The record is an 82-nucleotide RNA sequence from Medicago truncatula, which matches "MIR2617 microRNA precursor family" in Rfam. The base pairs follow the family's consensus structure, which was predicted with RNAalifold.
RNA sequence: ACGUGUAGCAUGUCCGUUGUGGAAUUACUCUGAUGUAUAUUUGUUAUUUAAUUGCUUUUGGGUAACGGGGUGUUACAACAUG
Numbered sequence: 001a002c003g004u005g006u007a008g009c010a011u012g013u014c015c016g017u018u019g020u021g022g023a024a025u026u027a028c029u030c031u032g033a034u035g036u037a038u039a040u041u042u043g044u045u046a047u048u049u050a051a052u053u054g055c056u057u058u059u060g061g062g063u064a065a066c067g068g069g070g071u072g073u074u075a076c077a078a079c080a081u082g
Base pairs, nucleotide, nucleotide: 002082003081004077005076006075007074008073009072010071011070013069014068015067016066017065018064